A member of the RNA family "Bacteroides-1 RNA" from Bacteroides sp. OM05-12, 84 nucleotides long.
RNA sequence: GUGCAAAUGAACCUGAUACUUCUUUAUGGAUAUGUGAAUACCUAUGAGUAGUUUUAUAUGAUUCUAAAACAUAUAACAGGUAAA
Numbered sequence: 001g002u003g004c005a006a007a008u009g010a011a012c013c014u015g016a017u018a019c020u021u022c023u024u025u026a027u028g029g030a031u032a033u034g035u036g037a038a039u040a041c042c043u044a045u046g047a048g049u050a051g052u053u054u055u056a057u058a059u060g061a062u063u064c065u066a067a068a069a070c071a072u073a074u075a076a077c078a079g080g081u082a083a084a
Stems, first nucleotide, its partner, number of pairs: 018052003024047005031040003056074005062068001
The source organism's lineage runs through Bacteria, Pseudomonadati, Bacteroidota, Bacteroidales and Bacteroides.